[Rfam]
RNA sequence: AAAUGACUGUCGGGGUGCCAACAUGACGUUGUCGGCUGAGAAUAUACCCGUACGACCUGAUCAGGUUCGAACCUGCGUAGGCAACAAUUAUGACUGCUCC
Numbered sequence: 001a002a003a004u005g006a007c008u009g010u011c012g013g014g015g016u017g018c019c020a021a022c023a024u025g026a027c028g029u030u031g032u033c034g035g036c037u038g039a040g041a042a043u044a045u046a047c048c049c050g051u052a053c054g055a056c057c058u059g060a061u062c063a064g065g066u067u068c069g070a071a072c073c074u075g076c077g078u079a080g081g082c083a084a085c086a087a088u089u090a091u092g093a094c095u096g097c098u099c100c
Base pairs, nucleotide, nucleotide: 006088008086009085010084011050012049013048014047016044017036018035019034021032022031023030056081057080058079059078062075063074064073065072
Dot-bracket structure: .....(.(((((((.((((.(((......))).))).......)..)))).....((((..((((......))))..))))..))).)............
This 100-nucleotide RNA from Teredinibacter turnerae belongs to the Rfam family "TPP riboswitch aptamer (THI element)".
NCBI's taxonomy places the organism under Bacteria, Gammaproteobacteria, Cellvibrionaceae, Teredinibacter, Teredinibacter turnerae.